[Rfam]
RNA: Mammalian CPEB3 ribozyme
RNA sequence: UGAGCAAUCAAGGCCACAGAAGACGUGCUCAUGGCACAGCCUUGUUGGAUGCCAACAAAUCUGCCAAUUCUGCU
Numbered sequence: 001u002g003a004g005c006a007a008u009c010a011a012g013g014c015c016a017c018a019g020a021a022g023a024c025g026u027g028c029u030c031a032u033g034g035c036a037c038a039g040c041c042u043u044g045u046u047g048g049a050u051g052c053c054a055a056c057a058a059a060u061c062u063g064c065c066a067a068u069u070c071u072g073c074u
Base pairs, nucleotide, nucleotide: 011042012041013040014039018074019073021071022070023069025037026036027035046063047062048061049060050059